RNA sequence: AGGCAACCCCCUCUCUAUGUUCUUUUGGAAAGGGUGGUGUUUAUCUGCUCGUAGAACAAGUUACUUUUGCUCUUCAGACUUGCUGAUUUAUUCUUGAAGCUGGUCUAGUAAGCCCAAGAACAGU
Numbered sequence: 001a002g003g004c005a006a007c008c009c010c011c012u013c014u015c016u017a018u019g020u021u022c023u024u025u026u027g028g029a030a031a032g033g034g035u036g037g038u039g040u041u042u043a044u045c046u047g048c049u050c051g052u053a054g055a056a057c058a059a060g061u062u063a064c065u066u067u068u069g070c071u072c073u074u075c076a077g078a079c080u081u082g083c084u085g086a087u088u089u090a091u092u093c094u095u096g097a098a099g100c101u102g103g104u105c106u107a108g109u110a111a112g113c114c115c116a117a118g119a120a121c122a123g124u
Stems, first nucleotide, its partner, number of pairs: 002041004007037002009034004014029004064118003069113003076106005082100003

This 124-nucleotide RNA sequence from Dorcoceras hygrometricum belongs to the Rfam family "Small nucleolar RNA snoR77". For this family Rfam cites "Experimental RNomics: identification of 140 candidates for small non-messenger RNAs in the plant Arabidopsis thaliana" (Marker et al., Curr Biol, 2002). It is annotated as an H/ACA-box small nucleolar RNA. Rfam links the family to the GO terms nucleolus and RNA processing. It scores 101 bits against the family's covariance model. Lineage of the source: Eukaryota > Streptophytina > Gunneridae > lamiids > Dorcoceras. Pairs were carried over by alignment from the consensus structure, which was predicted with WAR.